[Rfam]
RNA sequence: AGGCUUGUUUUAAAUUAUCUUAGCGGAUUUCAGUGAGAUUGUGCUGUCAAUGAUGUGAUUGUUACACACACUGAGGCCU
Numbered sequence: 001a002g003g004c005u006u007g008u009u010u011u012a013a014a015u016u017a018u019c020u021u022a023g024c025g026g027a028u029u030u031c032a033g034u035g036a037g038a039u040u041g042u043g044c045u046g047u048c049a050a051u052g053a054u055g056u057g058a059u060u061g062u063u064a065c066a067c068a069c070a071c072u073g074a075g076g077c078c079u
Stems, first nucleotide, its partner, number of pairs: 001079005
RNA: Small nucleolar RNA R11/Z151
Organism: Hibiscus syriacus